[Rfam]
RNA sequence: UGCGUUUUAGUUUAACAGGUCAAAAUCGGGGUUUCAUCAGCCCUUGUUAAAGGUUCGAGUCCUUUAAAUGCAC
Numbered sequence: 001u002g003c004g005u006u007u008u009a010g011u012u013u014a015a016c017a018g019g020u021c022a023a024a025a026u027c028g029g030g031g032u033u034u035c036a037u038c039a040g041c042c043c044u045u046g047u048u049a050a051a052g053g054u055u056c057g058a059g060u061c062c063u064u065u066a067a068a069u070g071c072a073c
Stems, first nucleotide, its partner, number of pairs: 001072007010026004028044005049065005
RNA: tRNA
Organism: Tulasnella sp. JGI-2019a